Rfam assigns this 88-nucleotide sequence from Caenorhabditis elegans to the family "Caenorhabditis snoRNA ceN28". The family's RNA type in Rfam is C/D-box small nucleolar RNA. The pairing is the family consensus, mapped onto this sequence.
RNA sequence: CACGUCUGGUGAGGAUGAAAACAGGACAGGUUUCGCUAAAAUAUUACCGAAUGCCAAUAUGUCGAGACACCUUGGCUGUCUGAGGACG
Numbered sequence: 001c002a003c004g005u006c007u008g009g010u011g012a013g014g015a016u017g018a019a020a021a022c023a024g025g026a027c028a029g030g031u032u033u034c035g036c037u038a039a040a041a042u043a044u045u046a047c048c049g050a051a052u053g054c055c056a057a058u059a060u061g062u063c064g065a066g067a068c069a070c071c072u073u074g075g076c077u078g079u080c081u082g083a084g085g086a087c088g
Stems, first nucleotide, its partner, number of pairs: 003088004
The source organism's lineage runs through Eukaryota, Opisthokonta, Chromadorea, Peloderinae and Caenorhabditis. Its family is annotated with RNA processing and nucleolus in the Gene Ontology. A reference for the family is Jia et al. (2007), "Systematic identification of non-coding RNA 2,2,7-trimethylguanosine cap structures in Caenorhabditis elegans", BMC Mol Biol.